[Rfam]
Nucleotides: 065
Base pairs, nucleotide, nucleotide: 008031009030010029011028012027013025014024035058036057037056038055039054040053041052042051
Number, partner (000 for none) and nucleotide at each position: 001000u002000g003000u004000c005000u006000c007000c008031u009030c010029u011028a012027u013025u014024c015000u016000c017000c018000u019000c020000c021000a022000a023000g024014g025013a026000a027012a028011u029010a030009g031008a032000u033000u034000c035058a036057g037056c038055c039054c040053a041052c042051c043000g044000g045000u046000c047000u048000u049000c050000c051042g052041g053040u054039g055038g056037g057036c058035u059000u060000u061000u062000u063000u064000u065000u